Plastid-psbA-1 3UTR RNA: a 114-nucleotide RNA sequence from Bongardia chrysogonum.
[Rfam]
RNA sequence: GUUGAAGCUCCAUCUACAAAUGGCUAAGACUUCGGUCUUAUUGUAUCCGAGUCGUUGAACUUGCAAUAGAAAAGCCCAUCCUCUUUACAUAACAAGAGGAUGGGCUUUUCUAUU
Dot-bracket structure: .........((((......)))).........................................(((((((((((.(((.(((((........))))).))).)))))))))))
The sequence is in the family's curated seed alignment. Rfam describes the family as follows. Plastid psbA-1 is a non-coding RNA (ncRNA) present in plastids. The source organism's lineage runs through Eukaryota, Streptophytina, Embryophyta, Mesangiospermae and Bongardia.